Shown here is a 103-nucleotide RNA sequence from Clostridium cadaveris, a member of the family "THF (Tetrahydrofolate) riboswitch aptamer". Tetrahydrofolate (THF) riboswitch was first reported for Ames et al. as an RNA motif in 5' untranslated (5'-UTR)regions of folate transport and biosynthesis genes in Firmicutes genomes. The match comes from Rfam's covariance-model search (83 bits). The organism belongs to Clostridium, within Bacteria.
RNA sequence: AGCAGAGUAGGCUUAUAAGCGUGAAGUGUUUGGUAGACGGGGAGUUGUUACCAAAACGAAAAGUAAACAAGUGCUUGCGAUUUAUUUGCCGCAUCCCGCUGUG
Numbered sequence: 001a002g003c004a005g006a007g008u009a010g011g012c013u014u015a016u017a018a019g020c021g022u023g024a025a026g027u028g029u030u031u032g033g034u035a036g037a038c039g040g041g042g043a044g045u046u047g048u049u050a051c052c053a054a055a056a057c058g059a060a061a062a063g064u065a066a067a068c069a070a071g072u073g074c075u076u077g078c079g080a081u082u083u084a085u086u087u088g089c090c091g092c093a094u095c096c097c098g099c100u101g102u103g
Stems, first nucleotide, its partner, number of pairs: 002102004010090003015085005020079003026057002029055008040096003044092001061076004